[Rfam]
RNA: RtT RNA
Organism: Serratia rubidaea
RNA sequence: AUAGCGCACGAGUCGUGUAGGUGAGAAGCUGCGUUCAGGUUCGAGCCGAGCGAAGCGAGACGACAACGCGUAGCGUUGCCCGUAGGGCGAGGCCGGAGGCCGAGUCAAUCCUGCACGACCCACCA
Number, nucleotide and partner (000 for none) at each position: 001a000002u000003a000004g000005c000006g000007c000008a000009c000010g000011a000012g000013u000014c000015g116016u115017g114018u113019a112020g111021g110022u108023g000024a000025g000026a000027a000028g000029c000030u000031g000032c089033g088034u000035u087036c086037a000038g000039g000040u084041u000042c082043g081044a000045g000046c000047c057048g056049a000050g000051c000052g000053a000054a000055g000056c048057g047058a000059g000060a000061c000062g000063a000064c078065a077066a076067c075068g074069c073070g000071u000072a000073g069074c068075g067076u066077u065078g064079c000080c000081c043082g042083u000084a040085g000086g036087g035088c033089g032090a000091g000092g000093c000094c000095g000096g000097a000098g000099g000100c000101c000102g000103a000104g000105u000106c000107a000108a022109u000110c021111c020112u019113g018114c017115a016116c015117g000118a000119c000120c000121c000122a000123c000124c000125a000